The record is a 211-nucleotide RNA sequence from Bacillus sp. THAF10, which matches "T-box leader" in Rfam. It is annotated as a cis-regulatory leader. Uncharged tRNA acts as the effector for transcription antitermination of genes in the T-box leader family. The family's consensus secondary structure is taken from published work. Taxonomically the source falls in Bacillus (Bacteria, Bacillati, Bacillota, Bacilli).
[Rfam]
RNA sequence: AAAAUAGCGAUGAUAAAGAGUAGUACUUAACAUGGCCGUUUAUUAGAGAGUUUGUGGUUGGUGAAAACAAACAACGGCGGUUUAGGAAUGGACUUUUGAGCUUCUCUGUUGAAAUAAUAGUAGACAGUGACGUUUCCUUACGAUACAAGGUUAAGUGAUUUCUUAAUGCAAGAAAUAAUAAGGGUGGUACCACGGUCCAUUCGUCCCUUUU
Numbered sequence: 001a002a003a004a005u006a007g008c009g010a011u012g013a014u015a016a017a018g019a020g021u022a023g024u025a026c027u028u029a030a031c032a033u034g035g036c037c038g039u040u041u042a043u044u045a046g047a048g049a050g051u052u053u054g055u056g057g058u059u060g061g062u063g064a065a066a067a068c069a070a071a072c073a074a075c076g077g078c079g080g081u082u083u084a085g086g087a088a089u090g091g092a093c094u095u096u097u098g099a100g101c102u103u104c105u106c107u108g109u110u111g112a113a114a115u116a117a118u119a120g121u122a123g124a125c126a127g128u129g130a131c132g133u134u135u136c137c138u139u140a141c142g143a144u145a146c147a148a149g150g151u152u153a154a155g156u157g158a159u160u161u162c163u164u165a166a167u168g169c170a171a172g173a174a175a176u177a178a179u180a181a182g183g184g185u186g187g188u189a190c191c192a193c194g195g196u197c198c199a200u201u202c203g204u205c206c207c208u209u210u211u
Stems, first nucleotide, its partner, number of pairs: 007101002015096004026085002029082003040074002050072006104129001106127005131142003158176007181208004192204004
Dot-bracket structure: ......((......((((.......((.(((........((........((((((...........)))))))).....))).)).......))))...))..(.(((((............))))).).(((......)))...............(((((((.....)))))))....((((.......((((.....))))))))...